This 85-nucleotide sequence belongs to the Rfam family "Cyanobacterial ribosomal protein S1 leader".
Rfam's curators write: cyano-S1 is a ncRNA recognized in the 5-prime region of genes encoding 30S ribosomal protein S1, it has been proposed as an cis regulation element.
The literature on the family includes a 2007 paper in Nucleic Acids Res by Weinberg et al., "Identification of 22 candidate structured RNAs in bacteria using the CMfinder comparative genomics pipeline".
Rfam's curators put it in the seed alignment.
The family's consensus secondary structure is taken from published work.

[Rfam]
RNA sequence: AUCAAUAAAGUAGAAUUUAAUCUCAAUUUGGUCGGCGGGCCAUUUUGUAUUCCUAUCGCACUGUUCUAAAAAGGCAGACCGCCAU
Numbered sequence: 001a002u003c004a005a006u007a008a009a010g011u012a013g014a015a016u017u018u019a020a021u022c023u024c025a026a027u028u029u030g031g032u033c034g035g036c037g038g039g040c041c042a043u044u045u046u047g048u049a050u051u052c053c054u055a056u057c058g059c060a061c062u063g064u065u066c067u068a069a070a071a072a073g074g075c076a077g078a079c080c081g082c083c084a085u
Stems, first nucleotide, its partner, number of pairs: 024047003029042004034083005061077005